[Rfam]
RNA: isrG Hfq binding RNA
RNA sequence: CUGCUGUAGCUGCUGCUGUAGCUGCUGCUGCUGCUGCUGCUGUAGCUGCUGUUGCUGCUGCUGCUGUAGCUGCUGCUGCUGCUGCUGCUCUGCUGCUGCUGCUGCUGCUGCUGCUGCUACUGCUGCUGCUGCUACUGCUGCUGCUGCUGCUGCUGCUGCUGUAGCAUAAAGCAGCCCUGCAGCAGCUACAGCAGCAGCUACAGCAGCAGCAGCAGCAGCAGAGCAGCAACAGCAGCUACAGCAGCAGCAGCAGCAGCAGAGCAGCAACAGCAGCUACAGCAGCAG
Numbered sequence: 001c002u003g004c005u006g007u008a009g010c011u012g013c014u015g016c017u018g019u020a021g022c023u024g025c026u027g028c029u030g031c032u033g034c035u036g037c038u039g040c041u042g043u044a045g046c047u048g049c050u051g052u053u054g055c056u057g058c059u060g061c062u063g064c065u066g067u068a069g070c071u072g073c074u075g076c077u078g079c080u081g082c083u084g085c086u087g088c089u090c091u092g093c094u095g096c097u098g099c100u101g102c103u104g105c106u107g108c109u110g111c112u113g114c115u116g117c118u119a120c121u122g123c124u125g126c127u128g129c130u131g132c133u134a135c136u137g138c139u140g141c142u143g144c145u146g147c148u149g150c151u152g153c154u155g156c157u158g159c160u161g162u163a164g165c166a167u168a169a170a171g172c173a174g175c176c177c178u179g180c181a182g183c184a185g186c187u188a189c190a191g192c193a194g195c196a197g198c199u200a201c202a203g204c205a206g207c208a209g210c211a212g213c214a215g216c217a218g219c220a221g222a223g224c225a226g227c228a229a230c231a232g233c234a235g236c237u238a239c240a241g242c243a244g245c246a247g248c249a250g251c252a253g254c255a256g257c258a259g260a261g262c263a264g265c266a267a268c269a270g271c272a273g274c275u276a277c278a279g280c281a282g283c284a285g
Base pairs, nucleotide, nucleotide: 004285005284006283007282009280010279011278015274016273017272021271022270023269024257025256026255027254028253029252030251031250034247035246036245037244038243039242040241057073058072060070061069062068063067075099076098078096082092084090101236102235104233105232106231107230109228110227111226113224114223115220116219117218118217120215121214122213123212125210126209127208128207129206131138132137143204144203149198150197151196152195153194154193155192156191157190158189